[Rfam]
RNA sequence: GGUUUCCAUUGGUGCAAAUCCAAUCAUUUUCUAUUCCAUUUUUAAUUUCAAAUGAGAAAGAAUUCCCAUUGGUAGCAAAUGGUAUCCAUUAAGCAGGGAAAUCCUAU
Numbered sequence: 001g002g003u004u005u006c007c008a009u010u011g012g013u014g015c016a017a018a019u020c021c022a023a024u025c026a027u028u029u030u031c032u033a034u035u036c037c038a039u040u041u042u043u044a045a046u047u048u049c050a051a052a053u054g055a056g057a058a059a060g061a062a063u064u065c066c067c068a069u070u071g072g073u074a075g076c077a078a079a080u081g082g083u084a085u086c087c088a089u090u091a092a093g094c095a096g097g098g099a100a101a102u103c104c105u106a107u
Stems, first nucleotide, its partner, number of pairs: 009023004065098002068089002071086004076082001
Plastid-rps12 3UTR RNA: a 107-nucleotide RNA. The sequence is in the family's curated seed alignment. Plastid rpl20 is a non-coding RNA (ncRNA) recognised in plastids. It was found in the three prime untranslated region (3UTR) of rps12 gene, its 3UTR location sugest a role in transcript maduration. Rfam classes the family as a cis-regulatory element.